The family of this 31-nucleotide sequence from Carya illinoinensis is "L31-Coriobacteria ribosomal protein leader". For this family Rfam cites "Discovery of 20 novel ribosomal leader candidates in bacteria and archaea" (Eckert and Weinberg, BMC Microbiol, 2020).

RNA sequence: AUCUUGGUCGGAAACCAAGAUCCAAAAGGAA
Numbered sequence: 001a002u003c004u005u006g007g008u009c010g011g012a013a014a015c016c017a018a019g020a021u022c023c024a025a026a027a028g029g030a031a
Base pairs, nucleotide, nucleotide: 001021002020003019004018005017006016007015008014

Rfam 15.1 lists 105 matches to the family in 84 species. It scores 35 bits against the family's covariance model.